[Rfam]
RNA sequence: UUCCAAGUGUAGGGGGACCGGAGUGCCGGUUGAGAUUGUAUCCUGUAGAUACUGACCCUUUGAACCUGAACUGGCUGAUACCAGCGUAGGAAACAUUCUCUUAAACGAU
Dot-bracket structure: .....(((((((((.((((((....))))).......((((.......)))))..)))).....((((..((((......))))..))))..)))))............
Numbered sequence: 001u002u003c004c005a006a007g008u009g010u011a012g013g014g015g016g017a018c019c020g021g022a023g024u025g026c027c028g029g030u031u032g033a034g035a036u037u038g039u040a041u042c043c044u045g046u047a048g049a050u051a052c053u054g055a056c057c058c059u060u061u062g063a064a065c066c067u068g069a070a071c072u073g074g075c076u077g078a079u080a081c082c083a084g085c086g087u088a089g090g091a092a093a094c095a096u097u098c099u100c101u102u103a104a105a106c107g108a109u
Stems, first nucleotide, its partner, number of pairs: 006097005011059004016053001017030005038052004065090004071084004